This 87-nucleotide RNA from Mannheimia haemolytica belongs to the Rfam family "sRNA-Xcc1". A reference for the family is Chen et al. (2011), "sRNA-Xcc1, an integron-encoded transposon- and plasmid-transferred trans-acting sRNA, is under the positive control of the key virulence regulators HrpG and HrpX of Xanthomonas campestris pathovar campestris", RNA Biol. Lineage of the source: Bacteria > Pseudomonadati > Pseudomonadota > Pasteurellales > Mannheimia haemolytica.
[Rfam]
RNA sequence: GUCGGGAGGGCGACUAAUACAAGACCGAAAGGAAAUACGUCCAGCCCUUACCUUAGAGUGGGUUUUCGAACCUCCCGACGCCACUGU
Numbered sequence: 001g002u003c004g005g006g007a008g009g010g011c012g013a014c015u016a017a018u019a020c021a022a023g024a025c026c027g028a029a030a031g032g033a034a035a036u037a038c039g040u041c042c043a044g045c046c047c048u049u050a051c052c053u054u055a056g057a058g059u060g061g062g063u064u065u066u067c068g069a070a071c072c073u074c075c076c077g078a079c080g081c082c083a084c085u086g087u
Base pairs, nucleotide, nucleotide: 001079002078003077004076005075006074007073008072009071012041013040014039015037016036025032026031043064044063045062046061047060